[Rfam]
RNA sequence: GGUUCUAUGAUUACCUGCCCUAUUUAUUGGGCGAUAUACGCUAUGCCGAUUAUUAUCAUGAGUAGAAAAUCUUUUUAUUAUGAGAACU
Numbered sequence: 001g002g003u004u005c006u007a008u009g010a011u012u013a014c015c016u017g018c019c020c021u022a023u024u025u026a027u028u029g030g031g032c033g034a035u036a037u038a039c040g041c042u043a044u045g046c047c048g049a050u051u052a053u054u055a056u057c058a059u060g061a062g063u064a065g066a067a068a069a070u071c072u073u074u075u076u077a078u079u080a081u082g083a084g085a086a087c088u
Base pairs, nucleotide, nucleotide: 001088002087003086004085005084
Shown here is an 88-nucleotide sequence from Phtheirospermum japonicum, a member of the family "Small nucleolar RNA U54". From the family's description: U54 is a C/D box small nucleolar RNA, which acts as a methylation guide for 18S ribosomal RNA in plants. A search with the family's covariance model found it, with a score of 48 bits. The family is grouped with related families in Rfam's "U54 clan". Rfam 15.1 lists 614 matches to the family in 206 species. For this family Rfam cites "The high diversity of snoRNAs in plants: identification and comparative study of 120 snoRNA genes from Oryza sativa" (Chen et al., Nucleic Acids Res, 2003). The organism belongs to Phtheirospermum, within Eukaryota.